[Rfam]
RNA sequence: CAAGUGAAUAAAAUAUACACUUAUAUAAUCUUUGUGAUAUGGACAAUAAGUUUCUACCCGGGCACCGUAAAUGACCGGACUAUGAGUGAUUUGCACUGAACU
Numbered sequence: 001c002a003a004g005u006g007a008a009u010a011a012a013a014u015a016u017a018c019a020c021u022u023a024u025a026u027a028a029u030c031u032u033u034g035u036g037a038u039a040u041g042g043a044c045a046a047u048a049a050g051u052u053u054c055u056a057c058c059c060g061g062g063c064a065c066c067g068u069a070a071a072u073g074a075c076c077g078g079a080c081u082a083u084g085a086g087u088g089a090u091u092u093g094c095a096c097u098g099a100a101c102u
Base pairs, nucleotide, nucleotide: 018088019087020086021085022084023083024082025081029049032046033045034044035043058078059077060076061075063073064072

The family of this 102-nucleotide RNA sequence from Listeria kieliensis is "Purine riboswitch aptamer". The base pairs follow the family's consensus structure, which is taken from published work. About the family: Riboswitches are metabolite binding domains within certain messenger RNAs that serve as precision sensors for their corresponding targets.